[Rfam]
RNA: Selenocysteine insertion sequence 1
RNA sequence: CCCAGACCAGUGACGGCCUGUCCACAAACCCGCUCAGCGGACAGGACAGGCCUGAUGACUUCAGCGUG
Numbered sequence: 001c002c003c004a005g006a007c008c009a010g011u012g013a014c015g016g017c018c019u020g021u022c023c024a025c026a027a028a029c030c031c032g033c034u035c036a037g038c039g040g041a042c043a044g045g046a047c048a049g050g051c052c053u054g055a056u057g058a059c060u061u062c063a064g065c066g067u068g
Stems, first nucleotide, its partner, number of pairs: 003068002015052009030040003